This 126-nucleotide sequence from Yersinia ruckeri belongs to the Rfam family "Yersinia sRNA 49". Rfam describes the family as follows. The sRNA was identified by and is confirmed to have a stable secondary structure by using genome-wide structure probing at different temperatures. The function is unknown. The source organism's lineage runs through Bacteria, Pseudomonadota, Enterobacterales, Yersiniaceae and Yersinia. By type it is a small RNA.

RNA sequence: AUUUAUACCCAAUAGAUUUCAAGGCGUAGGAAGGCGGUGAACGAGAGUAGCCAACACAUCUACAAUUUGAAAGCUGACGGGUUGUUGCCGUGGAAACUUUUGGCCCAUCUUACGAUGGGCUUUUUU
Dot-bracket structure: (((((.......)))))..................(((..((....)).)))....((((.(((((((..........))))))).)..))).........((((((((....)))))))).....
Numbered sequence: 001a002u003u004u005a006u007a008c009c010c011a012a013u014a015g016a017u018u019u020c021a022a023g024g025c026g027u028a029g030g031a032a033g034g035c036g037g038u039g040a041a042c043g044a045g046a047g048u049a050g051c052c053a054a055c056a057c058a059u060c061u062a063c064a065a066u067u068u069g070a071a072a073g074c075u076g077a078c079g080g081g082u083u084g085u086u087g088c089c090g091u092g093g094a095a096a097c098u099u100u101u102g103g104c105c106c107a108u109c110u111u112a113c114g115a116u117g118g119g120c121u122u123u124u125u126u
Stems, first nucleotide, its partner, number of pairs: 001017005036052003041048002057092003060087001062085007102121008